[Rfam]
RNA sequence: AUUCUGAACUGAAAAUGCAUCCAGGCCCGUCGGCUUCUGGGGCAAAAUUGUCGGCUCUUUGUGCGUGAUCGCUGGUGUGCUGACAAUCGCACUGCCGGUACCGGUUAUCGUCAGUAAU
Numbered sequence: 001a002u003u004c005u006g007a008a009c010u011g012a013a014a015a016u017g018c019a020u021c022c023a024g025g026c027c028c029g030u031c032g033g034c035u036u037c038u039g040g041g042g043c044a045a046a047a048u049u050g051u052c053g054g055c056u057c058u059u060u061g062u063g064c065g066u067g068a069u070c071g072c073u074g075g076u077g078u079g080c081u082g083a084c085a086a087u088c089g090c091a092c093u094g095c096c097g098g099u100a101c102c103g104g105u106u107a108u109c110g111u112c113a114g115u116a117a118u
Stems, first nucleotide, its partner, number of pairs: 001118002005114001008111002011108001013106002017101001019099002041081004054066002

Description:
The family of this 118-nucleotide RNA sequence from Drosophila ananassae is "Potassium channel RNA editing signal". A search with the family's covariance model found it, with a score of 53 bits. A reference for the family is Bhalla et al. (2004), "Control of human potassium channel inactivation by editing of a small mRNA hairpin", Nat Struct Mol Biol. Its family is annotated with adenosine to inosine editing in the Gene Ontology. From the family's description: This family represents a group of sequences related to the human potassium channel Kv1.1 hairpin element which directs the efficient modification of an adenosine to inosine by an adenosine deaminase acting on RNA (ADAR). The ADAR modification causes an isoleucine/valine recoding event which lies in the ion-conducting pore of the potassium channel. It is thought that this editing event targets the process of fast inactivation and allows a more rapid recovery from inactivation at negative potentials.